Background: The family of this 90-nucleotide sequence from Irena cyanogastra is "tRNA". It scores 51 bits against the family's covariance model. The base pairs follow the family's consensus structure, which is taken from published work.
[Rfam]
RNA sequence: ACUUUGAUAGCUCAGCUGGUAGAGUGGAGGACUGUAGGCUGUCUAUGAAAAGUAAUCCUUAGGUUGCUGGUUCAAUUCCGGCUCAAAGGA
Numbered sequence: 001a002c003u004u005u006g007a008u009a010g011c012u013c014a015g016c017u018g019g020u021a022g023a024g025u026g027g028a029g030g031a032c033u034g035u036a037g038g039c040u041g042u043c044u045a046u047g048a049a050a051a052g053u054a055a056u057c058c059u060u061a062g063g064u065u066g067c068u069g070g071u072u073c074a075a076u077u078c079c080g081g082c083u084c085a086a087a088g089g090a
Stems, first nucleotide, its partner, number of pairs: 002088006010025004027060005066082005